Overview
Shown here is a 224-nucleotide RNA from Streptomyces broussonetiae, a member of the family "Actinobacteria sRNA Ms_IGR-5". The base pairs follow the family's consensus structure. The organism belongs to Streptomyces, within Bacteria.
[Rfam]
RNA sequence: ACACGAGAAGGGAGGUGGUUCGGCAGAUGUAUGAGAACCGGACGCGUGAGGUGGCUGCGGGCUAGCGGUCCGCCACCCCAUCCAGUGCGGUGCCGGACCAGCGUGUGACAGACGCGCGCAGCCGGCCCAAUCCCAGGCAGUCCACCCGACCCGCGAACUCGCCGGUACGUCCGGCCGGCUCCCGCGCCGAGAGGCGCAGGACCCGAGUUCGCGGGUCGUCUGCU
Numbered sequence: 001a002c003a004c005g006a007g008a009a010g011g012g013a014g015g016u017g018g019u020u021c022g023g024c025a026g027a028u029g030u031a032u033g034a035g036a037a038c039c040g041g042a043c044g045c046g047u048g049a050g051g052u053g054g055c056u057g058c059g060g061g062c063u064a065g066c067g068g069u070c071c072g073c074c075a076c077c078c079c080a081u082c083c084a085g086u087g088c089g090g091u092g093c094c095g096g097a098c099c100a101g102c103g104u105g106u107g108a109c110a111g112a113c114g115c116g117c118g119c120a121g122c123c124g125g126c127c128c129a130a131u132c133c134c135a136g137g138c139a140g141u142c143c144a145c146c147c148g149a150c151c152c153g154c155g156a157a158c159u160c161g162c163c164g165g166u167a168c169g170u171c172c173g174g175c176c177g178g179c180u181c182c183c184g185c186g187c188c189g190a191g192a193g194g195c196g197c198a199g200g201a202c203c204c205g206a207g208u209u210c211g212c213g214g215g216u217c218g219u220c221u222g223c224u
Base pairs, nucleotide, nucleotide: 015058016057017056018055019054060127061126062125063124065122066121068119069118071116072115073114147218148217149216150215151214152213153212154211155210156209157208158207159206161179162178163177164176165175166174